Selenocysteine transfer RNA: an 88-nucleotide sequence from Photobacterium jeanii. The family's consensus secondary structure is taken from published work. Taxonomically the source falls in Photobacterium (Bacteria, Pseudomonadati, Pseudomonadota, Vibrionaceae).

[Rfam]
RNA sequence: GGAAGUGGAUGGGGUCUGGUGGCCCUCUCGGUCUUCAAAACCGAUGUAAGCUGAAUAGGCUUUGGUAGGUUCGAUUCCUGCUCCUUCC
Numbered sequence: 001g002g003a004a005g006u007g008g009a010u011g012g013g014g015u016c017u018g019g020u021g022g023c024c025c026u027c028u029c030g031g032u033c034u035u036c037a038a039a040a041c042c043g044a045u046g047u048a049a050g051c052u053g054a055a056u057a058g059g060c061u062u063u064g065g066u067a068g069g070u071u072c073g074a075u076u077c078c079u080g081c082u083c084c085u086u087c088c
Stems, first nucleotide, its partner, number of pairs: 001088005007082002011026006028044005048062004066080004